drum RNA: a 112-nucleotide RNA sequence. Rfam classes the family as a small RNA.

RNA sequence: AAGCGGUGAAAUAUAACAGCGUACCGGAAUGCCCUGUUAUAUGAAGCUUUCAGUAGGGGUUCUUCAACAACCUCAAACUGAUGUAGACAAACGUCGAAAGAAAAUACAGAAG
Numbered sequence: 001a002a003g004c005g006g007u008g009a010a011a012u013a014u015a016a017c018a019g020c021g022u023a024c025c026g027g028a029a030u031g032c033c034c035u036g037u038u039a040u041a042u043g044a045a046g047c048u049u050u051c052a053g054u055a056g057g058g059g060u061u062c063u064u065c066a067a068c069a070a071c072c073u074c075a076a077a078c079u080g081a082u083g084u085a086g087a088c089a090a091a092c093g094u095c096g097a098a099a100g101a102a103a104a105u106a107c108a109g110a111a112g
Stems, first nucleotide, its partner, number of pairs: 001049004011042009021032002025080003066105001086095003
Dot-bracket structure: ((((......(((((((((.((..[[[...)).)))))))))...))))................(...........]]].....(((....))).........).......
Rfam describes the family as follows. Firmicutes, Bacteroidetes (1 example), Proteobacteria (2 examples), Spirochaetes (2 examples). Rfam's curators put it in the seed alignment.